[Rfam]
RNA sequence: ACAACAUUCGGACCGUCGGUCUAACGAGCAAUCAUACCCGCUCGAUGGAAGAUCUUCCCUUUGUCGU
Numbered sequence: 001a002c003a004a005c006a007u008u009c010g011g012a013c014c015g016u017c018g019g020u021c022u023a024a025c026g027a028g029c030a031a032u033c034a035u036a037c038c039c040g041c042u043c044g045a046u047g048g049a050a051g052a053u054c055u056u057c058c059c060u061u062u063g064u065c066g067u
Base pairs, nucleotide, nucleotide: 004064005063006062010058011057012056015053016052017051020049021048022047023046025044026043027042028041029040
mir-2774 microRNA precursor family: a 67-nucleotide RNA from Bombyx mori. The match comes from Rfam's covariance-model search (88 bits). A reference for the family is Liu et al. (2010), "MicroRNAs of Bombyx mori identified by Solexa sequencing", BMC Genomics.